RNA sequence: AUUUUCUCCAUCAUCACGGAUCUGUGCCCGGCGGUCCUCUGCUUGAGCUUUUCAAGUCAGGGUCGACUGCCGCGCAGCUCGAUAACCUCAUGGAGCCAUCAACUUGCUAUGGUGUCAAUCAUCCUAUCGACAGGUCCUAGAAAGAUCGGUCUGGGGGCUGUCCCGUUUGUCGUCGCAAGACGGCCAGCGCGGCGGCUCCUGCACCGGAGGCGGUAUAUUCCAACCCUCUUUUCCGAGGUCGUCGACCCGUGAGGUUGGGGAAAACCAUGAGGCCUACAUAA
Number, nucleotide and partner (000 for none) at each position: 001a000002u000003u000004u000005u000006c000007u000008c000009c000010a000011u000012c000013a000014u000015c000016a000017c000018g137019g136020a135021u134022c133023u132024g131025u130026g075027c074028c000029c072030g071031g070032c000033g068034g067035u066036c065037c062038u061039c060040u059041g058042c056043u055044u054045g053046a052047g000048c000049u000050u000051u000052u046053c045054a044055a043056g042057u000058c041059a040060g039061g038062g037063u000064c000065g036066a035067c034068u033069g000070c031071c030072g029073c000074g027075c026076a000077g000078c000079u000080c000081g000082a000083u129084a000085a127086c000087c000088u000089c000090a000091u117092g116093g115094a000095g113096c112097c111098a000099u000100c000101a000102a000103c000104u000105u000106g000107c000108u000109a000110u000111g097112g096113u095114g000115u093116c092117a091118a000119u000120c000121a000122u000123c000124c000125u000126a000127u085128c000129g083130a025131c024132a023133g022134g021135u020136c019137c018138u000139a000140g000141a000142a000143a000144g000145a000146u000147c000148g204149g000150u000151c000152u000153g000154g200155g199156g198157g197158c000159u000160g000161u000162c000163c000164c189165g188166u187167u186168u000169g184170u183171c182172g181173u180174c179175g000176c000177a000178a000179g174180a173181c172182g171183g170184c169185c000186a167187g166188c165189g164190c000191g000192g000193c000194g000195g000196c000197u157198c156199c155200u154201g000202c000203a000204c148205c000206g000207g000208a000209g274210g273211c272212g000213g000214u269215a268216u267217a000218u000219u000220c000221c000222a000223a000224c000225c260226c259227u258228c257229u000230u000231u000232u000233c254234c253235g000236a000237g247238g246239u245240c244241g000242u000243c000244g240245a239246c238247c237248c000249g000250u000251g000252a000253g234254g233255u000256u000257g228258g227259g226260g225261a000262a000263a000264a000265c000266c000267a216268u215269g214270a000271g000272g211273c210274c209275u000276a000277c000278a000279u000280a000281a000